[Rfam]
RNA: mir-8364 microRNA precursor family
Organism: Pristionchus pacificus
RNA sequence: UUUCCAUUUCCCACAUUCUCUUACCGGUCAGAGAAGCGAGAGAGUGUGCGAAAUGAAGAGA
Number, nucleotide and partner (000 for none) at each position: 001u059002u058003u057004c000005c055006a054007u053008u000009u000010c050011c000012c048013a047014c046015a045016u044017u043018c000019u041020c040021u039022u038023a000024c000025c000026g000027g000028u000029c000030a000031g000032a000033g000034a000035a000036g000037c000038g022039a021040g020041a019042g000043a017044g016045u015046g014047u013048g012049c000050g010051a000052a000053a007054u006055g005056a000057a003058g002059a001060g000061a000